[Rfam]
The record is a 279-nucleotide sequence from Nannospalax galili, which matches "Mason-Pfizer monkey virus packaging signal" in Rfam. A search with the family's covariance model found it, with a score of 114 bits. The family's RNA type in Rfam is cis-regulatory element.
RNA sequence: UGGCGCCCAAUGUCGCCUGGAUAUUGGGGAUACUGUGGACAACGUGAGGGACAGCAAAAAAAGAAGGGGUGCGCAUCCGCUCAAAUAGUUUGGAGACGUGGCCGUAGCCUGCCGCGACUGAGCCGAUGGUAAGUUGAGCUGUCCGAAUCAUGGGGCACGAAUUGAGACAGCAUCAGAUUUAUGUGAAGCAAUUGGGGGAUGCUUUAAAGGCAAGAGGAGUAAAAGUUAAGUCUGCAGAUUUUUUUCAUUUCUUUGAUUUUAUAAAAGACAUCUGCCCAU
Dot-bracket structure: .....(((...((.........))..)))....((....)).............................................(.(((.....((..((.(.......).))...))....)).).).....(.((..((((.....)))))).)....((((...................................).))).......((((((...(((((.........))))).......)))))).........(..(.(....).)..)